[Rfam]
RNA sequence: AGAGUCUUCCGACCUGACACAACAUCCUGCAGCGAUGUUGUGUGACCUGCAGUGUCAGUCGGUGGACUCG
Numbered sequence: 001a002g003a004g005u006c007u008u009c010c011g012a013c014c015u016g017a018c019a020c021a022a023c024a025u026c027c028u029g030c031a032g033c034g035a036u037g038u039u040g041u042g043u044g045a046c047c048u049g050c051a052g053u054g055u056c057a058g059u060c061g062g063u064g065g066a067c068u069c070g
Base pairs, nucleotide, nucleotide: 002069003068004067005066006065009062010061011060012059013058021039022038023037024036025035026034044056045055046054
This 70-nucleotide RNA sequence from Aspergillus versicolor belongs to the Rfam family "bZIP non canonical Hac1/Xbp1 intron". The family has 112 seed sequences and 1,325 matches in Rfam 15.1. The source organism's lineage runs through Eukaryota, Ascomycota, saccharomyceta, Pezizomycotina and Aspergillus versicolor. bZIP intron RNA is a non-canonical intron that was first reported in HAC1 gene in yeast and XBP1 gene in Metazoa.